[Rfam]
RNA sequence: AGGCAAAGGAGGCAACAUCCGCCGGCGAGUUUCGCCCGCGGGUGCUUUUUUG
Numbered sequence: 001a002g003g004c005a006a007a008g009g010a011g012g013c014a015a016c017a018u019c020c021g022c023c024g025g026c027g028a029g030u031u032u033c034g035c036c037c038g039c040g041g042g043u044g045c046u047u048u049u050u051u052g
Stems, first nucleotide, its partner, number of pairs: 016044007025035004